TPP riboswitch aptamer (THI element): a 98-nucleotide RNA sequence from Denitrovibrio acetiphilus.
NCBI's taxonomy places the organism under Bacteria, Pseudomonadati, Deferribacteres, Geovibrionaceae, Denitrovibrio acetiphilus.

[Rfam]
RNA sequence: UAACAGCCCUGGGGGUGUUGCCUUAGAUAGGGCGGCUGAGAUAUACCCCAAGACCUGAUCCGGAUAAUGCCGGCGUAGGGAAGGGGAAUUAUGUAGAU
Numbered sequence: 001u002a003a004c005a006g007c008c009c010u011g012g013g014g015g016u017g018u019u020g021c022c023u024u025a026g027a028u029a030g031g032g033c034g035g036c037u038g039a040g041a042u043a044u045a046c047c048c049c050a051a052g053a054c055c056u057g058a059u060c061c062g063g064a065u066a067a068u069g070c071c072g073g074c075g076u077a078g079g080g081a082a083g084g085g086g087a088a089u090u091a092u093g094u095a096g097a098u
Base pairs, nucleotide, nucleotide: 007085008084009083010082011049012048013047014046016043017036018035019034020033021032022031023030054079055078056077057076060073061072062071063070